[Rfam]
RNA sequence: CUAUGAAGGAAGCAUGGUAAUGUGUACAGAAAUUGAAUUGGCCCAAUUGGGUCUCUAGGCCUGCCCUCUCUUAUGUCAUUUGGCUUUGAUUUGAGGGCAUGUUCUGCAGUAAAACA
Numbered sequence: 001c002u003a004u005g006a007a008g009g010a011a012g013c014a015u016g017g018u019a020a021u022g023u024g025u026a027c028a029g030a031a032a033u034u035g036a037a038u039u040g041g042c043c044c045a046a047u048u049g050g051g052u053c054u055c056u057a058g059g060c061c062u063g064c065c066c067u068c069u070c071u072u073a074u075g076u077c078a079u080u081u082g083g084c085u086u087u088g089a090u091u092u093g094a095g096g097g098c099a100u101g102u103u104c105u106g107c108a109g110u111a112a113a114a115c116a
Base pairs, nucleotide, nucleotide: 012025013024014023015022049100051098052097053096059090061088063084064083065082
The family of this 116-nucleotide RNA from Rhododendron simsii is "Small nucleolar RNA snoR100". It is annotated as an H/ACA-box small nucleolar RNA. The base pairs follow the family's consensus structure, which was predicted with WAR. For this family Rfam cites "Experimental RNomics: identification of 140 candidates for small non-messenger RNAs in the plant Arabidopsis thaliana" (Marker et al., Curr Biol, 2002). Gene Ontology terms of the family: nucleolus and RNA processing.